A member of the RNA family "Iron response element I" from Myotis lucifugus, 33 nucleotides long. The base pairs follow the family's consensus structure, which is taken from published work. The match comes from Rfam's covariance-model search (34 bits). Lineage of the source: Eukaryota > Bilateria > Amniota > Mammalia > Myotis.
[Rfam]
RNA sequence: UCUCUUGCUUCAACAGUGUUUGGACAAAAAAGA
Numbered sequence: 001u002c003u004c005u006u007g008c009u010u011c012a013a014c015a016g017u018g019u020u021u022g023g024a025c026a027a028a029a030a031a032g033a
Base pairs, nucleotide, nucleotide: 001033002032003029005027007025009024010023011022012021013020014018